[Rfam]
RNA sequence: UUGCAGCGGGAAAGUCGUACACGACCAGCUCCCUCCAAACUCCCCCAGGGCCGGAAGGCAGCAAGGGUAGGAGGUCGUAGCGGUGCGAUGUGCUAAGCUUUCCCUUUU
Numbered sequence: 001u002u003g004c005a006g007c008g009g010g011a012a013a014g015u016c017g018u019a020c021a022c023g024a025c026c027a028g029c030u031c032c033c034u035c036c037a038a039a040c041u042c043c044c045c046c047a048g049g050g051c052c053g054g055a056a057g058g059c060a061g062c063a064a065g066g067g068u069a070g071g072a073g074g075u076c077g078u079a080g081c082g083g084u085g086c087g088a089u090g091u092g093c094u095a096a097g098c099u100u101u102c103c104c105u106u107u108u
Stems, first nucleotide, its partner, number of pairs: 008104008017093005022087002024084002